[Rfam]
RNA sequence: AGAGUCCUACGCCGAAGGUCUAGCGCACCACGGUGCUCGCAAGCCGUGCGUCGGCGACCUGUAAGGGCGUGGCCAAGCGUCGGUAGCACUACGUACGGGCCAGCUAUUGAGCCCCGAAAUGGGGUUAGUCCAGGGUGGUGACACUGUCAUGACAAGUGGAAGACAAUAGCGACGGCGACGUUAUUGUGUGACACCGCCGAACCGUGGGUGUCAAAAAACC
Numbered sequence: 001a002g003a004g005u006c007c008u009a010c011g012c013c014g015a016a017g018g019u020c021u022a023g024c025g026c027a028c029c030a031c032g033g034u035g036c037u038c039g040c041a042a043g044c045c046g047u048g049c050g051u052c053g054g055c056g057a058c059c060u061g062u063a064a065g066g067g068c069g070u071g072g073c074c075a076a077g078c079g080u081c082g083g084u085a086g087c088a089c090u091a092c093g094u095a096c097g098g099g100c101c102a103g104c105u106a107u108u109g110a111g112c113c114c115c116g117a118a119a120u121g122g123g124g125u126u127a128g129u130c131c132a133g134g135g136u137g138g139u140g141a142c143a144c145u146g147u148c149a150u151g152a153c154a155a156g157u158g159g160a161a162g163a164c165a166a167u168a169g170c171g172a173c174g175g176c177g178a179c180g181u182u183a184u185u186g187u188g189u190g191a192c193a194c195c196g197c198c199g200a201a202c203c204g205u206g207g208g209u210g211u212c213a214a215a216a217a218a219c220c
Stems, first nucleotide, its partner, number of pairs: 010035005017029003023187002039087002043084004047079002050073003054070003058067003108214001109212001111211002114208002131206002134203003137164001139162001142158004170199002173196003177192001179190001

A member of the RNA family "Group II catalytic intron D1-D4-6" from Ferrimicrobium acidiphilum, 220 nucleotides long. A reference for the family is Lehmann and Schmidt (2003), "Group II introns: structure and catalytic versatility of large natural ribozymes", Crit Rev Biochem Mol Biol. The base pairs follow the family's consensus structure. Its family is annotated with Group II intron splicing in the Gene Ontology.